RNA: SAM riboswitch aptamer (S box leader)
Organism: Terrihalobacillus insolitus
RNA sequence: UUCUUAUCAAGAUAGGCGGAGGGACUGGCCCAUUGAAACCGAGCAACAGACUUUUUCAAAAAAGUACUGUGCUAAUUCCUGUGAGCAUUAUAAAAAUGCUCAAGAGAUAAGAG
Number, nucleotide and partner (000 for none) at each position: 001u113002u112003c111004u110005u109006a108007u107008c106009a000010a000011g000012a000013u041014a000015g040016g039017c000018g000019g000020a000021g031022g030023g029024a000025c081026u000027g079028g078029c023030c022031c021032a000033u000034u000035g000036a000037a000038a000039c016040c015041g013042a073043g072044c071045a070046a000047c069048a068049g000050a065051c064052u063053u062054u000055u000056u000057c000058a000059a000060a000061a000062a053063a052064g051065u050066a000067c000068u048069g047070u045071g044072c043073u042074a000075a000076u000077u105078c028079c027080u000081g025082u102083g101084a100085g099086c098087a097088u096089u095090a000091u000092a000093a000094a000095a089096a088097u087098g086099c085100u084101c083102a082103a000104g000105a077106g008107a007108u006109a005110a004111g003112a002113g001